Clostridiales-2 RNA: an 82-nucleotide RNA sequence from Oceanirhabdus seepicola.
Rfam 15.1 lists 285 matches to the family in 26 species.
The match comes from Rfam's covariance-model search (70 bits).
The family's consensus secondary structure is taken from published work.
It is annotated as a small RNA.
RNA sequence: AAAAUGAAGGGGUUGUAGGGGAAGUGUUUCCCCUGCCGUUUUAAGGAGGGUGCUCAGCAGCGGUAGCUGCGUCGAAGACCAG
Numbered sequence: 001a002a003a004a005u006g007a008a009g010g011g012g013u014u015g016u017a018g019g020g021g022a023a024g025u026g027u028u029u030c031c032c033c034u035g036c037c038g039u040u041u042u043a044a045g046g047a048g049g050g051u052g053c054u055c056a057g058c059a060g061c062g063g064u065a066g067c068u069g070c071g072u073c074g075a076a077g078a079c080c081a082g
Stems, first nucleotide, its partner, number of pairs: 015036008057070005